Shown here is a 66-nucleotide RNA from Plasmodium gonderi, a member of the family "Selenocysteine insertion sequence 5".
The base pairs follow the family's consensus structure, which was predicted with WAR.
The family's RNA type in Rfam is cis-regulatory element.

RNA sequence: UGUGGACGAAUGAAGAACUAUUCUAAAAUCCUGAAUAGAGGAAGGAAUAGAUCUGACAUAUCCACA
Numbered sequence: 001u002g003u004g005g006a007c008g009a010a011u012g013a014a015g016a017a018c019u020a021u022u023c024u025a026a027a028a029u030c031c032u033g034a035a036u037a038g039a040g041g042a043a044g045g046a047a048u049a050g051a052u053c054u055g056a057c058a059u060a061u062c063c064a065c066a
Base pairs, nucleotide, nucleotide: 002065003064004063005062006061008059014054015053016052018050019049020048021047022046023045024044029042030041031040